The record is a 91-nucleotide RNA from Nocardioides sp. Root190, which matches "Bacterial small signal recognition particle RNA" in Rfam. The literature on the family includes a 2003 paper in Nucleic Acids Res by Rosenblad et al., "SRPDB: Signal Recognition Particle Database". The family's consensus secondary structure is taken from published work. Lineage of the source: Bacteria > Bacillati > Actinomycetota > Actinomycetes > Nocardioides. Gene Ontology terms of the family: SRP-dependent cotranslational protein targeting to membrane, signal sequence recognition and signal recognition particle, plasma membrane targeting.
RNA sequence: AACCCCCCGUGUGGCGGCAUCUCACCCAACUCCCCCAGGGCCGGAAGGCAGCAAGGGUAAGUGGGCUCUGUCGGGUACACGGGGGGCCUCU
Numbered sequence: 001a002a003c004c005c006c007c008c009g010u011g012u013g014g015c016g017g018c019a020u021c022u023c024a025c026c027c028a029a030c031u032c033c034c035c036c037a038g039g040g041c042c043g044g045a046a047g048g049c050a051g052c053a054a055g056g057g058u059a060a061g062u063g064g065g066c067u068c069u070g071u072c073g074g075g076u077a078c079a080c081g082g083g084g085g086g087c088c089u090c091u
Stems, first nucleotide, its partner, number of pairs: 003086009012075001015073005021065005032057003040049003